[Rfam]
RNA sequence: AGGCAAGAUGUUGGCAUAGCUGAUAGUCGAAAAUUAUUCAGUUAUGCUAUAUGUUGCCAGA
Numbered sequence: 001a002g003g004c005a006a007g008a009u010g011u012u013g014g015c016a017u018a019g020c021u022g023a024u025a026g027u028c029g030a031a032a033a034u035u036a037u038u039c040a041g042u043u044a045u046g047c048u049a050u051a052u053g054u055u056g057c058c059a060g061a
Stems, first nucleotide, its partner, number of pairs: 002058003008052004013048003019042005
Source information
Shown here is a 61-nucleotide sequence from Strongyloides ratti, a member of the family "mir-72 microRNA precursor family". The organism belongs to Strongyloides, within Eukaryota. The family's consensus secondary structure was predicted with RNAalifold.